[Rfam]
RNA sequence: UUGAACCAUGGCGAUGGGGUACCGCCAAAACCGCCAACAGGCUGAUGACUCCUACGAUUUU
Numbered sequence: 001u002u003g004a005a006c007c008a009u010g011g012c013g014a015u016g017g018g019g020u021a022c023c024g025c026c027a028a029a030a031c032c033g034c035c036a037a038c039a040g041g042c043u044g045a046u047g048a049c050u051c052c053u054a055c056g057a058u059u060u061u
Stems, first nucleotide, its partner, number of pairs: 010026004016052005033042003
The record is a 61-nucleotide RNA from Pedobacter sp. Leaf194, which matches "Fluoride riboswitch aptamer (crcB RNA motif)" in Rfam.
The source organism's lineage runs through Bacteria, Pseudomonadati, Sphingobacteriia, Sphingobacteriales and Pedobacter.
Its family is annotated with response to fluoride and positive regulation of gene expression in the Gene Ontology.
Pairs were carried over by alignment from the consensus structure, which is taken from published work.